[Rfam]
RNA sequence: AAAAAACCAUGGCCUCGUUGCCUCUUGUGAACUGGGUUCUCAUACACAUCAGGAAAAUUAUUCUCAUUGUUAUUGGGUGAACCUCUGUAUUUAAUGGUGACGUGUGGUUCAGUAAAUGAUGGAACAUUU
Numbered sequence: 001a002a003a004a005a006a007c008c009a010u011g012g013c014c015u016c017g018u019u020g021c022c023u024c025u026u027g028u029g030a031a032c033u034g035g036g037u038u039c040u041c042a043u044a045c046a047c048a049u050c051a052g053g054a055a056a057a058u059u060a061u062u063c064u065c066a067u068u069g070u071u072a073u074u075g076g077g078u079g080a081a082c083c084u085c086u087g088u089a090u091u092u093a094a095u096g097g098u099g100a101c102g103u104g105u106g107g108u109u110c111a112g113u114a115a116a117u118g119a120u121g122g123a124a125c126a127u128u129u
Stems, first nucleotide, its partner, number of pairs: 005049001011038002014035002017032001064122008078111006
About this RNA
Rfam assigns this 129-nucleotide RNA sequence from Jatropha curcas to the family "Small nucleolar RNA snoR74". NCBI's taxonomy places the organism under Eukaryota, Streptophytina, Tracheophyta, rosids, Jatropha. Pairs were carried over by alignment from the consensus structure, which was predicted with WAR. The family's RNA type in Rfam is H/ACA-box small nucleolar RNA. The match comes from Rfam's covariance-model search (75 bits).